[Rfam]
RNA: mir-217 microRNA precursor family
Organism: Sphaeramia orbicularis
RNA sequence: AUCUUUCUGAUGUUGAUGAUACUGCAUCAGGAAUUGAUUGGACACAAAUGAGAAGCCAUCAGCUCCUGAUGCACAGCCUUCAGCAUCGACAUA
Numbered sequence: 001a002u003c004u005u006u007c008u009g010a011u012g013u014u015g016a017u018g019a020u021a022c023u024g025c026a027u028c029a030g031g032a033a034u035u036g037a038u039u040g041g042a043c044a045c046a047a048a049u050g051a052g053a054a055g056c057c058a059u060c061a062g063c064u065c066c067u068g069a070u071g072c073a074c075a076g077c078c079u080u081c082a083g084c085a086u087c088g089a090c091a092u093a
Stems, first nucleotide, its partner, number of pairs: 023073005029067004034062004039058003